[Rfam]
Source information:
SAM riboswitch aptamer (S box leader): a 147-nucleotide RNA sequence from Anaerobacillus alkalidiazotrophicus. Rfam links the family to the GO term regulation of gene expression. The organism belongs to Anaerobacillus, within Bacteria.
RNA sequence: UACUUAUCAAGAGAGGCGGAGGGACUGACCCGAUGAAGCCCGGCAACCUGUUAUCCUUUUGUUUUGCUAUUUUAGGCUAAAUAAAAACAAAAGGCUAUCUAAACAAGGUGCUAAGUUCAGCAGAGAGAAUGCUCUGGCAGAUAAGUG
Dot-bracket structure: ((((((((....(.(((...(((.[[[[)))......))))((((.((((((.................................................)))).))))))...(]]]](((((......)))))..)))))))))